RNA sequence: CCUCUGGAGAGAACUGUUUAGUCAGUCGCCGAAGGAGUAAUACUCUCAGGUACAAUGGACAGAGG
Numbered sequence: 001c002c003u004c005u006g007g008a009g010a011g012a013a014c015u016g017u018u019u020a021g022u023c024a025g026u027c028g029c030c031g032a033a034g035g036a037g038u039a040a041u042a043c044u045c046u047c048a049g050g051u052a053c054a055a056u057g058g059a060c061a062g063a064g065g
Base pairs, nucleotide, nucleotide: 001065002064003063004062005061006060013026014025015024016023028051029050030049031047032046035045036044037043
Rfam assigns this 65-nucleotide RNA sequence from Ilyobacter polytropus to the family "Glycine riboswitch aptamer". From the family's description: This family represents the bacterial glycine riboswitch. Glycine riboswitches usually consist of two metabolite-binding aptamers domains with similar structures in tandem. The aptamers cooperatively bind glycine to regulate the expression of downstream genes. The pairing is the family consensus, mapped onto this sequence.